The record is a 91-nucleotide RNA from Pelagibacterales bacterium SAG-MED09, which matches "Glycine riboswitch aptamer" in Rfam. Taxonomically the source falls in Candidatus Pelagibacterales (Bacteria, Pseudomonadati, Pseudomonadota, Alphaproteobacteria). Pairs were carried over by alignment from the consensus structure.
RNA sequence: AUUGAUUAUACGGGAGAGACUACAGAGUAUUGUAGCGCCGAAGGAGCAACCACCCAGGAAUCUCUCAGGCAAAAAGGACCGUAACAUAUUA
Numbered sequence: 001a002u003u004g005a006u007u008a009u010a011c012g013g014g015a016g017a018g019a020c021u022a023c024a025g026a027g028u029a030u031u032g033u034a035g036c037g038c039c040g041a042a043g044g045a046g047c048a049a050c051c052a053c054c055c056a057g058g059a060a061u062c063u064c065u066c067a068g069g070c071a072a073a074a075a076g077g078a079c080c081g082u083a084a085c086a087u088a089u090u091a
Stems, first nucleotide, its partner, number of pairs: 006086001009083005020035004037070003040066002044064003050057001